[Rfam]
RNA sequence: GAGUUGCGGCCGUUACUGCCGAGGUUCUCGGCGUGAUGCCAGCAGCCCGGUCUUCAGGCUGCGACGUGGUUCUCCGCGUCAGACCGCCUGUCCGCUUCACAUCGUUCCCGCGGACGAACGCCCUACCGGCGUGAUGC
Numbered sequence: 001g002a003g004u005u006g007c008g009g010c011c012g013u014u015a016c017u018g019c020c021g022a023g024g025u026u027c028u029c030g031g032c033g034u035g036a037u038g039c040c041a042g043c044a045g046c047c048c049g050g051u052c053u054u055c056a057g058g059c060u061g062c063g064a065c066g067u068g069g070u071u072c073u074c075c076g077c078g079u080c081a082g083a084c085c086g087c088c089u090g091u092c093c094g095c096u097u098c099a100c101a102u103c104g105u106u107c108c109c110g111c112g113g114a115c116g117a118a119c120g121c122c123c124u125a126c127c128g129g130c131g132u133g134a135u136g137c
Base pairs, nucleotide, nucleotide: 011038012037013036014035018032019031020030021029022028023027042062043061044060045059046058047057049085050084051083052082063080064079065078066077067076068075069074110137111136112135118132119131120130121129122128
This 137-nucleotide sequence from Rhizobium subbaraonis belongs to the Rfam family "radC RNA".
The base pairs follow the family's consensus structure, which is taken from published work.